[Rfam]
RNA sequence: GAUAAGGUUUUCUAGUAUUCCCCCCUUUUAUUGGACAAGUUGUAGAACUUGUCCUUUUUU
Numbered sequence: 001g002a003u004a005a006g007g008u009u010u011u012c013u014a015g016u017a018u019u020c021c022c023c024c025c026u027u028u029u030a031u032u033g034g035a036c037a038a039g040u041u042g043u044a045g046a047a048c049u050u051g052u053c054c055u056u057u058u059u060u
Stems, first nucleotide, its partner, number of pairs: 004027004033054009
Dot-bracket structure: ...((((................)))).....(((((((((....)))))))))......
Shown here is a 60-nucleotide sequence from Bacillus mesophilus, a member of the family "Bacillus sRNA ncr1241". Taxonomically the source falls in Bacillus (Bacteria, Bacilli, Caryophanales, Bacillaceae). The base pairs follow the family's consensus structure, which is taken from published work. It is annotated as a small RNA. A search with the family's covariance model found it, with a score of 67 bits. On this family, see Irnov et al., Nucleic Acids Res 2010: "Identification of regulatory RNAs in Bacillus subtilis".